[Rfam]
About this RNA:
The family of this 57-nucleotide sequence from Nicotiana sylvestris is "Plastid-ndhJ 3UTR RNA". The family's RNA type in Rfam is cis-regulatory element. Rfam's curators write: Plastid ndhJ is a non-coding RNA (ncRNA) present in plastids. It was identified as a short stem-loop motif in the 3 prime untranslate region (3UTR) of ndhJ gene. The base pairs follow the family's consensus structure, which was predicted with LocARNA. It is one of the family's seed sequences.
RNA sequence: UCAUGAACUUUGUACUGCGCACAUUACUUAGAUGGGUUCUAGAAAGGCAUAUAGGAA
Numbered sequence: 001u002c003a004u005g006a007a008c009u010u011u012g013u014a015c016u017g018c019g020c021a022c023a024u025u026a027c028u029u030a031g032a033u034g035g036g037u038u039c040u041a042g043a044a045a046g047g048c049a050u051a052u053a054g055g056a057a
Base pairs, nucleotide, nucleotide: 019037020036022034023033024032025031